Overview: Rfam assigns this 62-nucleotide RNA sequence from Amazonocrinis nigriterrae to the family "Nitrogen stress-induced RNA 1".
[Rfam]
RNA sequence: UGGUAGAUGCACCUUGAUCUUCAACUCCCCUAGUCGGCUCAUGCCUAUUAGGGGUUUUUUUA
Numbered sequence: 001u002g003g004u005a006g007a008u009g010c011a012c013c014u015u016g017a018u019c020u021u022c023a024a025c026u027c028c029c030c031u032a033g034u035c036g037g038c039u040c041a042u043g044c045c046u047a048u049u050a051g052g053g054g055u056u057u058u059u060u061u062a
Stems, first nucleotide, its partner, number of pairs: 002013003027054008036045002

On this family, see Ionescu et al., J Mol Biol 2010: "Heterocyst-specific transcription of NsiR1, a non-coding RNA encoded in a tandem array of direct repeats in cyanobacteria". Lineage of the source: Bacteria > Cyanobacteriota > Nostocales > Amazonocrinis > Amazonocrinis nigriterrae. It scores 58 bits against the family's covariance model.